[Rfam]
RNA sequence: UACACCACUGAGCGCUGAAACGCGCCUUACUCGCCAUUACUGGAAAGAUGAGUGGAAAUAAAUCGAAACAGGGCGGGAAUGUUGAGCGGUCGUACUUGCUUUCCCGUAUGAGAUAGAA
Numbered sequence: 001u002a003c004a005c006c007a008c009u010g011a012g013c014g015c016u017g018a019a020a021c022g023c024g025c026c027u028u029a030c031u032c033g034c035c036a037u038u039a040c041u042g043g044a045a046a047g048a049u050g051a052g053u054g055g056a057a058a059u060a061a062a063u064c065g066a067a068a069c070a071g072g073g074c075g076g077g078a079a080u081g082u083u084g085a086g087c088g089g090u091c092g093u094a095c096u097u098g099c100u101u102u103c104c105c106g107u108a109u110g111a112g113a114u115a116g117a118a
Stems, first nucleotide, its partner, number of pairs: 003054003010027001012025004031048002034043003063111003073107006083098002086093002
RNA: RT-4 RNA